[Rfam]
Overview
M-box riboswitch aptamer (ykoK leader): a 172-nucleotide RNA from Paenibacillus sp. KS1. Its family is annotated with response to magnesium ion and regulation of gene expression in the Gene Ontology. Lineage of the source: Bacteria > Bacillati > Caryophanales > Paenibacillaceae > Paenibacillus. A search with the family's covariance model found it, with a score of 153 bits. M-box riboswitch, also know as ykoK leader is described as a metaloregulatory RNA that sense divalent metals and function as a genetic control element of genes related to divalent metal transport in bacteria. It was first reported upstream of the B.subtilis ykoK gene and genes with related functions in other bacteria.
RNA sequence: UCUAAGCUUUGUUAGGUGAGGCUCCUAUACGAACAGAGGCCACUGCCCAGAAAUAUCGAGAGAUGCCCAUGGGUAGAACAGGAAUUGUCGGAUUAAGGCUCUUCUUAAGGUGGCUAAGGGAAUGAAUCCCUUUACGUUGUAUAGUGCUGAAGCUCGACGAGGAGGGCUGGAA
Numbered sequence: 001u002c003u004a005a006g007c008u009u010u011g012u013u014a015g016g017u018g019a020g021g022c023u024c025c026u027a028u029a030c031g032a033a034c035a036g037a038g039g040c041c042a043c044u045g046c047c048c049a050g051a052a053a054u055a056u057c058g059a060g061a062g063a064u065g066c067c068c069a070u071g072g073g074u075a076g077a078a079c080a081g082g083a084a085u086u087g088u089c090g091g092a093u094u095a096a097g098g099c100u101c102u103u104c105u106u107a108a109g110g111u112g113g114c115u116a117a118g119g120g121a122a123u124g125a126a127u128c129c130c131u132u133u134a135c136g137u138u139g140u141a142u143a144g145u146g147c148u149g150a151a152g153c154u155c156g157a158c159g160a161g162g163a164g165g166g167c168u169g170g171a172a
Stems, first nucleotide, its partner, number of pairs: 005168006011158002013096001015154003020148003025144008039114005045074005054065004081105004087099003116132005